[Rfam]
This 97-nucleotide RNA from Psychromonas sp. B3M02 belongs to the Rfam family "Guanidine-I riboswitch aptamer". Its family is annotated with regulation of gene expression in the Gene Ontology. It scores 90 bits against the family's covariance model. Taxonomically the source falls in Psychromonas (Bacteria, Pseudomonadati, Pseudomonadota, Psychromonadaceae).
RNA sequence: AAAAUAGACAUCUAGGGUUCCGGCUGUAUGCAGUGACUGGUCCGAGAGUUGUCGACCUUUUUCUAAGGUUACACGGAGGGAUAAAAGCCCGGGAGAU
Numbered sequence: 001a002a003a004a005u006a007g008a009c010a011u012c013u014a015g016g017g018u019u020c021c022g023g024c025u026g027u028a029u030g031c032a033g034u035g036a037c038u039g040g041u042c043c044g045a046g047a048g049u050u051g052u053c054g055a056c057c058u059u060u061u062u063c064u065a066a067g068g069u070u071a072c073a074c075g076g077a078g079g080g081a082u083a084a085a086a087g088c089c090c091g092g093g094a095g096a097u
Base pairs, nucleotide, nucleotide: 007053008052009051010050012048015043016042020040021039022037023034024033025032026031054070055069056068057067058066059065072092074095078090079089080088